[Rfam]
Nucleotides: 150
Stems, first nucleotide, its partner, number of pairs: 004023005032053008054070005084150002087147002091145003095141003100134002103131001105129003109125002112122002
Number, partner (000 for none) and nucleotide at each position: 001000a002000u003000g004023c005022c006021u007020u008019a009000a010000a011000c012000u013000u014000a015000u016000g017000a018000g019008u020007a021006a022005g023004g024000a025000a026000a027000a028000u029000a030000a031000c032053g033052a034051u035050u036049u037048g038047g039046g040000a041000u042000g043000a044000c045000a046039c047038c048037c049036g050035a051034a052033u053032c054070c055069u056068u057067a058066c059000u060000g061000c062000c063000a064000a065000u066058g067057u068056g069055a070054g071000a072000a073000g074000c075000a076000u077000u078000u079000u080000u081000g082000a083000g084150c085149a086000u087147g088146u089000a090000a091145a092144g093143g094000c095141u096140g097139c098000c099000c100134c101133u102000a103131a104000g105129g106128c107127a108000a109125u110124c111000c112122g113121c114000c115000u116000g117000c118000u119000u120000u121113g122112c123000a124110g125109a126000a127107u128106g129105c130000a131103u132000g133101g134100g135000a136000g137000u138000g139097g140096u141095g142000u143093c144092c145091u146088g147087c148000c149085u150084g
Shown here is a 150-nucleotide RNA sequence from Rousettus aegyptiacus, a member of the family "U12 minor spliceosomal RNA". By type it is a spliceosomal small nuclear RNA. The pairing is the family consensus, mapped onto this sequence. A search with the family's covariance model found it, with a score of 119 bits.